Small nucleolar RNA SNORD28: a 76-nucleotide sequence from Ochotona princeps. Rfam links the family to the GO terms RNA processing and nucleolus. The family's RNA type in Rfam is C/D-box small nucleolar RNA. Rfam 15.1 lists 229 matches to the family in 149 species.
[Rfam]
RNA sequence: GUCAGAUGAUUAGAGACAAUCAAACUGAUGUUCUGUGAGGCCUGACAAUUAAUAGCAUGUUAGAGUUCUGAUGGCA
Numbered sequence: 001g002u003c004a005g006a007u008g009a010u011u012a013g014a015g016a017c018a019a020u021c022a023a024a025c026u027g028a029u030g031u032u033c034u035g036u037g038a039g040g041c042c043u044g045a046c047a048a049u050u051a052a053u054a055g056c057a058u059g060u061u062a063g064a065g066u067u068c069u070g071a072u073g074g075c076a
Stems, first nucleotide, its partner, number of pairs: 001075004